[Rfam]
RNA sequence: GUGUCUUGUGAUGAAGCUUCGUAGGGCAGAUUCUGAGCUGAGAAAAGUAAUUUCUCGUCGCUGAUCUUUAGUCUAUGCAAUCUGAAGACAC
Numbered sequence: 001g002u003g004u005c006u007u008g009u010g011a012u013g014a015a016g017c018u019u020c021g022u023a024g025g026g027c028a029g030a031u032u033c034u035g036a037g038c039u040g041a042g043a044a045a046a047g048u049a050a051u052u053u054c055u056c057g058u059c060g061c062u063g064a065u066c067u068u069u070a071g072u073c074u075a076u077g078c079a080a081u082c083u084g085a086a087g088a089c090a091c
Stems, first nucleotide, its partner, number of pairs: 001091006016081001018079001020077003025069002029065001032064002035061001037059001039057007